[Rfam]
RNA: Glycine riboswitch aptamer
RNA sequence: CGGUCAGGUUCGGGAGAAUCCGGGAAAGCGCCACACGCUCACCCCGGUGCCGAAGGAGCAACCGCCCCGGUAAACUCUCAGGCGCAAGGGACCGUUCUUGGCAC
Numbered sequence: 001c002g003g004u005c006a007g008g009u010u011c012g013g014g015a016g017a018a019u020c021c022g023g024g025a026a027a028g029c030g031c032c033a034c035a036c037g038c039u040c041a042c043c044c045c046g047g048u049g050c051c052g053a054a055g056g057a058g059c060a061a062c063c064g065c066c067c068c069g070g071u072a073a074a075c076u077c078u079c080a081g082g083c084g085c086a087a088g089g090g091a092c093c094g095u096u097c098u099u100g101g102c103a104c
Stems, first nucleotide, its partner, number of pairs: 006099003011094003020047004049083003052079002056077003062070002